[Rfam]
RNA sequence: GGACGAAUCUCUGGAGAGACUCCCUCCCAUUGGAGGAAAACGAGCACCGAAGGAGUAAAUCCGUCUUUUAAUAGAGACGUGAUAAUCUCUCAGGUAAAAAGGACAGAGACAAGCGA
Numbered sequence: 001g002g003a004c005g006a007a008u009c010u011c012u013g014g015a016g017a018g019a020c021u022c023c024c025u026c027c028c029a030u031u032g033g034a035g036g037a038a039a040a041c042g043a044g045c046a047c048c049g050a051a052g053g054a055g056u057a058a059a060u061c062c063g064u065c066u067u068u069u070a071a072u073a074g075a076g077a078c079g080u081g082a083u084a085a086u087c088u089c090u091c092a093g094g095u096a097a098a099a100a101g102g103a104c105a106g107a108g109a110c111a112a113g114c115g116a
Base pairs, nucleotide, nucleotide: 008109009108010107011106012105013104020044021043022042046095047094048093049091050090053089054088055087060081
About this RNA
Glycine riboswitch aptamer: a 116-nucleotide RNA from Heyndrickxia oleronia. Taxonomically the source falls in Heyndrickxia (Bacteria, Bacillati, Bacillota, Bacillaceae). The match comes from Rfam's covariance-model search (57 bits).